[Rfam]
The record is a 71-nucleotide RNA sequence from Clunio marinus, which matches "mir-1175 microRNA precursor family" in Rfam. Gene Ontology terms of the family: miRNA-mediated post-transcriptional gene silencing and RISC complex.
RNA sequence: UGGUGCAAGUGGAGAAGUAGUUCUCAUCGCUUAGCUUCAAAAGUGAGAUUCAACUUCUCCGACUUACAACC
Number, nucleotide and partner (000 for none) at each position: 001u000002g000003g000004u000005g000006c000007a065008a064009g063010u061011g060012g059013a058014g057015a000016a056017g055018u053019a000020g000021u000022u000023c000024u048025c047026a000027u046028c045029g044030c043031u042032u041033a000034g000035c000036u000037u000038c000039a000040a000041a032042a031043g030044u029045g028046a027047g025048a024049u000050u000051c000052a000053a018054c000055u017056u016057c014058u013059c012060c011061g010062a000063c009064u008065u007066a000067c000068a000069a000070c000071c000